The record is a 151-nucleotide RNA sequence from Martelella sp. AD-3, which matches "FMN riboswitch aptamer (RFN element)" in Rfam. From the family's description: The RFN element is a highly conserved domain that is found frequently in the 5'-untranslated regions of prokaryotic mRNAs that encode for flavin mononucleotide (FMN) biosynthesis and transport proteins. The source organism's lineage runs through Bacteria, Pseudomonadati, Pseudomonadota, Hyphomicrobiales and Martelella.
[Rfam]
RNA sequence: GCACAUUCUCGGGGCGGGGCGAGAUUCCCCACCGGCGGUAUGCGUUUCGGCGCGAGCCCGCGAGCGCCUUUCCGGACAUUGCCGGAAAGGGUCAGCAGAUCCGGUGCGAAACCGGAGCCGACGGUCAAAGUCCGGAAGGAAGAGAAUGCAG
Numbered sequence: 001g002c003a004c005a006u007u008c009u010c011g012g013g014g015c016g017g018g019g020c021g022a023g024a025u026u027c028c029c030c031a032c033c034g035g036c037g038g039u040a041u042g043c044g045u046u047u048c049g050g051c052g053c054g055a056g057c058c059c060g061c062g063a064g065c066g067c068c069u070u071u072c073c074g075g076a077c078a079u080u081g082c083c084g085g086a087a088a089g090g091g092u093c094a095g096c097a098g099a100u101c102c103g104g105u106g107c108g109a110a111a112c113c114g115g116a117g118c119c120g121a122c123g124g125u126c127a128a129a130g131u132c133c134g135g136a137a138g139g140a141a142g143a144g145a146a147u148g149c150a151g
Stems, first nucleotide, its partner, number of pairs: 004148007017029003031131002033120002035061004056118002064096002100116005122134003
Dot-bracket structure: ...(((((((......(((.......))).[[((((((.................[[))))..((.............................))...(((((.......)))))]])).(((.....]]))).......)))))))...